[Rfam]
A member of the RNA family "mir-9229 microRNA precursor family" from Myotis brandtii, 75 nucleotides long. Taxonomically the source falls in Myotis (Eukaryota, Sarcopterygii, Mammalia, Theria). A search with the family's covariance model found it, with a score of 76 bits.
Nucleotides: 075
Base pairs, nucleotide, nucleotide: 001074003072004071005070006069007068010065012064014062015061017059018058019057021056022055023054029053030052031051032050033049034048035047037044038043
Number, partner (000 for none) and nucleotide at each position: 001074g002000a003072g004071a005070c006069a007068c008000c009000c010065c011000u012064a013000u014062g015061g016000a017059g018058c019057a020000g021056g022055a023054c024000u025000u026000g027000u028000u029053u030052c031051a032050g033049u034048g035047g036000a037044g038043c039000u040000u041000u042000g043038g044037u045000g046000c047035u048034c049033a050032c051031u052030g053029a054023g055022u056021c057019u058018g059017c060000c061015u062014c063000u064012u065010g066000a067000u068007g069006u070005g071004u072003c073000a074001c075000u